[Rfam]
RNA sequence: GGGAAGUGGUGAGUGGUUAAUAACUCGCUAAUAAUGCGAGAAGAGUGUUUCGCUCGGCCUGUUACGACAAUUGAGCGCUCUCCAUAGUCGUACCAUCUGAUCCC
Numbered sequence: 001g002g003g004a005a006g007u008g009g010u011g012a013g014u015g016g017u018u019a020a021u022a023a024c025u026c027g028c029u030a031a032u033a034a035u036g037c038g039a040g041a042a043g044a045g046u047g048u049u050u051c052g053c054u055c056g057g058c059c060u061g062u063u064a065c066g067a068c069a070a071u072u073g074a075g076c077g078c079u080c081u082c083c084a085u086a087g088u089c090g091u092a093c094c095a096u097c098u099g100a101u102c103c104c
Base pairs, nucleotide, nucleotide: 001104002103003102004101014095015094016093017092024040025039026038027037028036042081043080044079045078046077047076048075049074059073061071062070

The record is a 104-nucleotide sequence from Brassica napus, which matches "Small nucleolar RNA Z279/snoR105/snoR108" in Rfam. On this family, see Marker et al., Curr Biol 2002: "Experimental RNomics: identification of 140 candidates for small non-messenger RNAs in the plant Arabidopsis thaliana". Rfam describes the family as follows. This family includes the plant snoRNAs known as Z279, snoR105 and snoR108. NCBI's taxonomy places the organism under Eukaryota, Euphyllophyta, Pentapetalae, malvids, Brassica. Its family is annotated with RNA processing and nucleolus in the Gene Ontology. Pairs were carried over by alignment from the consensus structure, which was predicted with PFOLD. The match comes from Rfam's covariance-model search (80 bits).